[Rfam]
The record is a 74-nucleotide sequence from Lactobacillus delbrueckii, which matches "tRNA" in Rfam. It is one of the family's seed sequences. It is annotated as a transfer RNA. NCBI's taxonomy places the organism under Bacteria, Bacillati, Bacilli, Lactobacillales, Lactobacillus.
RNA sequence: GCACCCAUAGCGCAACUGGAUAGAGUGUCUGACUACGAAUCAGAAGGUUGUAGGUUCAAGUCCUACUGGGUGCA
Numbered sequence: 001g002c003a004c005c006c007a008u009a010g011c012g013c014a015a016c017u018g019g020a021u022a023g024a025g026u027g028u029c030u031g032a033c034u035a036c037g038a039a040u041c042a043g044a045a046g047g048u049u050g051u052a053g054g055u056u057c058a059a060g061u062c063c064u065a066c067u068g069g070g071u072g073c074a
Stems, first nucleotide, its partner, number of pairs: 001073007010026002013023001028044005050066005